[Rfam]
RNA sequence: AGCCUGUGAUGCUAUACAAUAUUUGCUACUCUUGAUGGAGAUUCCUUCAUUUGAUGAUUCUUAACCACCAAGAUCUCUGAGGCU
Numbered sequence: 001a002g003c004c005u006g007u008g009a010u011g012c013u014a015u016a017c018a019a020u021a022u023u024u025g026c027u028a029c030u031c032u033u034g035a036u037g038g039a040g041a042u043u044c045c046u047u048c049a050u051u052u053g054a055u056g057a058u059u060c061u062u063a064a065c066c067a068c069c070a071a072g073a074u075c076u077c078u079g080a081g082g083c084u
Base pairs, nucleotide, nucleotide: 001084002083003082004081
Description
Rfam assigns this 84-nucleotide RNA from Cicer arietinum to the family "Small nucleolar RNA SNORD24". By type it is a C/D-box small nucleolar RNA. NCBI's taxonomy places the organism under Eukaryota, Embryophyta, Euphyllophyta, Papilionoideae, Cicer. It scores 70 bits against the family's covariance model. The literature on the family includes a 1996 paper in Cell by Kiss-Laszlo et al., "Site-specific ribose methylation of preribosomal RNA: a novel function for small nucleolar RNAs".